RNA: c-di-AMP riboswitch aptamer (ydaO/yuaA leader)
Organism: Herbidospora galbida
RNA sequence: CUCGGCGGACUGCCUAAUCCCGGGCGUGUCGCCCGGGAGCCGGGGACCCACCAGAACCUGGGGUGUAGGCGCUAUCGCGCGCCCGGGCUCCUCCGCCCGAAUCCGUCAGCUAACCCGGCCGGCGCAAGGAGAGGAGUG
Numbered sequence: 001c002u003c004g005g006c007g008g009a010c011u012g013c014c015u016a017a018u019c020c021c022g023g024g025c026g027u028g029u030c031g032c033c034c035g036g037g038a039g040c041c042g043g044g045g046a047c048c049c050a051c052c053a054g055a056a057c058c059u060g061g062g063g064u065g066u067a068g069g070c071g072c073u074a075u076c077g078c079g080c081g082c083c084c085g086g087g088c089u090c091c092u093c094c095g096c097c098c099g100a101a102u103c104c105g106u107c108a109g110c111u112a113a114c115c116c117g118g119c120c121g122g123c124g125c126a127a128g129g130a131g132a133g134g135a136g137u138g
Stems, first nucleotide, its partner, number of pairs: 011124004018038009039119006049060002061104003069082004085098004